About this RNA: The record is a 128-nucleotide RNA from Xenorhabdus nematophila, which matches "EFASI RNA" in Rfam. By type it is a small RNA. Lineage of the source: Bacteria > Pseudomonadati > Pseudomonadota > Gammaproteobacteria > Xenorhabdus nematophila. The family's consensus secondary structure is taken from published work. The sequence is in the family's curated seed alignment.
RNA sequence: CUGACGAUAUCGAGGCUGGCUUUUAGCCGGUGGGGAUGACCUGUUAAUACAGGCGGCAGUACCGCGUACUCAACCGAUACCCCGCAAUACCUCAACACGCGUUCACUCUGGCGCACAGAUAUUUGUCA
Numbered sequence: 001c002u003g004a005c006g007a008u009a010u011c012g013a014g015g016c017u018g019g020c021u022u023u024u025a026g027c028c029g030g031u032g033g034g035g036a037u038g039a040c041c042u043g044u045u046a047a048u049a050c051a052g053g054c055g056g057c058a059g060u061a062c063c064g065c066g067u068a069c070u071c072a073a074c075c076g077a078u079a080c081c082c083c084g085c086a087a088u089a090c091c092u093c094a095a096c097a098c099g100c101g102u103u104c105a106c107u108c109u110g111g112c113g114c115a116c117a118g119a120u121a122u123u124u125g126u127c128a
Base pairs, nucleotide, nucleotide: 002128003127004126005125006123007122008121009120010119011118016030017029018028019027020026021025032083033082034081035080040053041052042051043050044049054076055075056074058070059069060068061067062066